RNA sequence: AUCAGCUGGGGUUCUUGUUAAAAUUCAGAUUCUGAUUCAGUAGGCCUUGGGUCUGAGAUUCUGCAUUUCAAACAAGCUCCCAGGUGAAGCUGA
Numbered sequence: 001a002u003c004a005g006c007u008g009g010g011g012u013u014c015u016u017g018u019u020a021a022a023a024u025u026c027a028g029a030u031u032c033u034g035a036u037u038c039a040g041u042a043g044g045c046c047u048u049g050g051g052u053c054u055g056a057g058a059u060u061c062u063g064c065a066u067u068u069c070a071a072a073c074a075a076g077c078u079c080c081c082a083g084g085u086g087a088a089g090c091u092g093a
Stems, first nucleotide, its partner, number of pairs: 003086002009080003014076006021068003026063004031058003

A member of the RNA family "mir-544 microRNA precursor family" from Trichechus manatus, 93 nucleotides long. The family has 16 seed sequences and 10,750 matches in Rfam 15.1.